[Rfam]
The record is a 62-nucleotide RNA from Xiphophorus maculatus, which matches "Selenocysteine insertion sequence 1" in Rfam.
RNA sequence: UGUGUGUUCAUGAUGGUCUGUUUUUAAACUCAACAGAGCAAGCAGACUUGAUGUUUAACACC
Numbered sequence: 001u002g003u004g005u006g007u008u009c010a011u012g013a014u015g016g017u018c019u020g021u022u023u024u025u026a027a028a029c030u031c032a033a034c035a036g037a038g039c040a041a042g043c044a045g046a047c048u049u050g051a052u053g054u055u056u057a058a059c060a061c062c
Stems, first nucleotide, its partner, number of pairs: 002061004015048009029038003

Rfam 15.1 lists 3,793 matches to the family in 721 species. The incorporation of selenocysteine into a protein sequence is directed by an in-frame UGA codon (usually a stop codon) within the coding region of the mRNA. Selenoprotein mRNAs contain a conserved secondary structure in the 3' UTR that is required for the distinction of UGA stop from UGA selenocysteine. The selenocysteine insertion sequence (SECIS) is around 60 nt in length and adopts a hairpin structure which is sufficiently well-defined and conserved to act as a computational screen for selenoprotein genes. The literature on the family includes a 2002 paper in Biochimie by Lambert et al., "A survey of metazoan selenocysteine insertion sequences". It scores 37 bits against the family's covariance model.